[Rfam]
RNA sequence: CAAAAGGGCUCUGCGUUACUUACGCAAGCCGGAUAGAGAUGUUCGGCUCGGAAUGGUAAUCAAGACAUUUCGAGAGCGUAUUCUUUGCACUUGGCCUGCCCGAAAAUUACGGGCGGCCGU
Numbered sequence: 001c002a003a004a005a006g007g008g009c010u011c012u013g014c015g016u017u018a019c020u021u022a023c024g025c026a027a028g029c030c031g032g033a034u035a036g037a038g039a040u041g042u043u044c045g046g047c048u049c050g051g052a053a054u055g056g057u058a059a060u061c062a063a064g065a066c067a068u069u070u071c072g073a074g075a076g077c078g079u080a081u082u083c084u085u086u087g088c089a090c091u092u093g094g095c096c097u098g099c100c101c102g103a104a105a106a107u108u109a110c111g112g113g114c115g116g117c118c119g120u
Stems, first nucleotide, its partner, number of pairs: 008077005013025004027048009049072007093118004098114005
Dot-bracket structure: .......(((((((((.....)))).(((((((((....)))))))))(((((((..........))))))))))))...............((((.(((((.......)))))))))..
This 120-nucleotide RNA sequence from Rodentolepis nana belongs to the Rfam family "U11 spliceosomal RNA". The organism belongs to Rodentolepis, within Eukaryota. It scores 65 bits against the family's covariance model. The family has 72 seed sequences and 2,595 matches in Rfam 15.1.